[Rfam]
Shown here is a 93-nucleotide RNA sequence from Bacillus sp. MUM 13, a member of the family "pan motif". By type it is a cis-regulatory element.
RNA sequence: UGGGCAGUAUCAAAUUAGAGCUGCACCCAAAAAUGCUCGGCCAAACAAAAAAAAUUUCUGCCUUGAUCCAUUGAAAUGGACGGGGACGGAGGG
Numbered sequence: 001u002g003g004g005c006a007g008u009a010u011c012a013a014a015u016u017a018g019a020g021c022u023g024c025a026c027c028c029a030a031a032a033a034u035g036c037u038c039g040g041c042c043a044a045a046c047a048a049a050a051a052a053a054a055u056u057u058c059u060g061c062c063u064u065g066a067u068c069c070a071u072u073g074a075a076a077u078g079g080a081c082g083g084g085g086a087c088g089g090a091g092g093g
Stems, first nucleotide, its partner, number of pairs: 002027002004024005010019002058089003061085005067080003
The family's consensus secondary structure is taken from published work. NCBI's taxonomy places the organism under Bacteria, Bacillota, Bacilli, Caryophanales, Bacillus.